[Rfam]
RNA sequence: UGAGCGGUGCGUGACUGGCGUAAACAUGGAUAACCAUGAGGAAGCACACCGAUAACGGCCGUACGCCUGGGCGAAGUAU
Number, nucleotide and partner (000 for none) at each position: 001u000002g000003a053004g000005c051006g050007g049008u048009g047010c000011g045012u044013g000014a000015c041016u040017g067018g066019c065020g064021u063022a000023a000024a000025c000026a037027u036028g035029g034030a000031u000032a000033a000034c029035c028036a027037u026038g000039a000040g016041g015042a000043a000044g012045c011046a000047c009048a008049c007050c006051g005052a000053u003054a000055a000056c000057g000058g072059c071060c070061g000062u000063a021064c020065g019066c018067c017068u000069g000070g060071g059072c058073g000074a000075a000076g000077u000078a000079u000
RNA: ZMP/ZTP riboswitch aptamer (pfl RNA motif)